Rfam assigns this 139-nucleotide RNA from Paenibacillus spiritus to the family "c-di-AMP riboswitch aptamer (ydaO/yuaA leader)".
The organism belongs to Paenibacillus, within Bacteria.
The match comes from Rfam's covariance-model search (58 bits).

RNA sequence: GUGCAUAACAAGCCAAAUUCCCGGGCACCGGGGAGCGGGGGAACCAUUUGUUGGGUGAAUUGAUCUCGUAACAGAGGGAUCAUAGGGGACCUUCAACCGAAUCCUUAAGCUAACCACGCAGGCAUUGGAAGGAGCUCUA
Numbered sequence: 001g002u003g004c005a006u007a008a009c010a011a012g013c014c015a016a017a018u019u020c021c022c023g024g025g026c027a028c029c030g031g032g033g034a035g036c037g038g039g040g041g042a043a044c045c046a047u048u049u050g051u052u053g054g055g056u057g058a059a060u061u062g063a064u065c066u067c068g069u070a071a072c073a074g075a076g077g078g079a080u081c082a083u084a085g086g087g088g089a090c091c092u093u094c095a096a097c098c099g100a101a102u103c104c105u106u107a108a109g110c111u112a113a114c115c116a117c118g119c120a121g122g123c124a125u126u127g128g129a130a131g132g133a134g135c136u137c138u139a
Stems, first nucleotide, its partner, number of pairs: 012123003018034007035119003039115002046051001053104003061082007085098002